A member of the RNA family "Group II catalytic intron D1-D4-7" from Caproicibacter fermentans, 154 nucleotides long.
The base pairs follow the family's consensus structure.
Rfam links the family to the GO term Group II intron splicing.
About the family: Group II introns are found in rRNA, tRNA and mRNA of organelles in fungi, plants and protists, and also in mRNA in bacteria.
The match comes from Rfam's covariance-model search (80 bits).
[Rfam]
RNA sequence: CCUGCUAUUCCAUUGGCAGUAGCCUUGCAUCGCCAAAGCGGCCGGUAACGGCCGUGAGGAAGCAUGAUGUGAAUAGGCAGCCCCGCCCGAAAGGGCUUAAGCGGAAGCCGUGAGGUAGACGCGAUAAGCUGCGAGCAACAACGCGGCUGGGGAG
Numbered sequence: 001c002c003u004g005c006u007a008u009u010c011c012a013u014u015g016g017c018a019g020u021a022g023c024c025u026u027g028c029a030u031c032g033c034c035a036a037a038g039c040g041g042c043c044g045g046u047a048a049c050g051g052c053c054g055u056g057a058g059g060a061a062g063c064a065u066g067a068u069g070u071g072a073a074u075a076g077g078c079a080g081c082c083c084c085g086c087c088c089g090a091a092a093g094g095g096c097u098u099a100a101g102c103g104g105a106a107g108c109c110g111u112g113a114g115g116u117a118g119a120c121g122c123g124a125u126a127a128g129c130u131g132c133g134a135g136c137a138a139c140a141a142c143g144c145g146g147c148u149g150g151g152g153a154g
Base pairs, nucleotide, nucleotide: 002019003018004017005016006015007014028069029068030067031066032065033059034058038055039054040053041052042051043050044049085096086095087094088093101122102121108115109114128147129146130145131144132143133142
Rfam 15.1 lists 1,296 matches to the family in 705 species.